[Rfam]
RNA sequence: CCCAGGGCUCUCGCCCUGGGCUGAGGAGUGCCGCCUCUUCGAGGCU
Number, nucleotide and partner (000 for none) at each position: 001c020002c019003c018004a017005g016006g015007g014008c013009u000010c000011u000012c000013g008014c007015c006016c005017u004018g003019g002020g001021c000022u000023g000024a000025g000026g000027a000028g000029u000030g000031c000032c000033g045034c044035c043036u042037c041038u000039u000040c000041g037042a036043g035044g034045c033046u000
RNA: Acido-Lenti-1 RNA